[Rfam]
RNA sequence: CCUCCACUUCUUGUCGUGCCUGCGUCUGUCUGUGGCCUGUGUGUUUAUAAGGGAGGCAGAAAAAUCUCAGCGCAAAAGUCUUCGGUACCAGCGAGCUGCCAUCUUCUGGUCCUAUCCUCAUUGGCUGAGACACCG
Numbered sequence: 001c002c003u004c005c006a007c008u009u010c011u012u013g014u015c016g017u018g019c020c021u022g023c024g025u026c027u028g029u030c031u032g033u034g035g036c037c038u039g040u041g042u043g044u045u046u047a048u049a050a051g052g053g054a055g056g057c058a059g060a061a062a063a064a065u066c067u068c069a070g071c072g073c074a075a076a077a078g079u080c081u082u083c084g085g086u087a088c089c090a091g092c093g094a095g096c097u098g099c100c101a102u103c104u105u106c107u108g109g110u111c112c113u114a115u116c117c118u119c120a121u122u123g124g125c126u127g128a129g130a131c132a133c134c135g
Stems, first nucleotide, its partner, number of pairs: 001056005015043005022036002025034001068127004073123002088109004093104001